The record is a 54-nucleotide RNA sequence from Streptosporangium sandarakinum, which matches "L17-Actino-Proteobacteria ribosomal protein leader" in Rfam.
Pairs were carried over by alignment from the consensus structure, which is taken from published work.
It is annotated as a cis-regulatory leader.
A reference for the family is Eckert and Weinberg (2020), "Discovery of 20 novel ribosomal leader candidates in bacteria and archaea", BMC Microbiol.

RNA sequence: CGGGGGUCCUAGGACCCGCCGGCCCGACCCCGGUACCUCGUACGGCCGGGGCGG
Numbered sequence: 001c002g003g004g005g006g007u008c009c010u011a012g013g014a015c016c017c018g019c020c021g022g023c024c025c026g027a028c029c030c031c032g033g034u035a036c037c038u039c040g041u042a043c044g045g046c047c048g049g050g051g052c053g054g
Stems, first nucleotide, its partner, number of pairs: 001021003004017005024054003028051007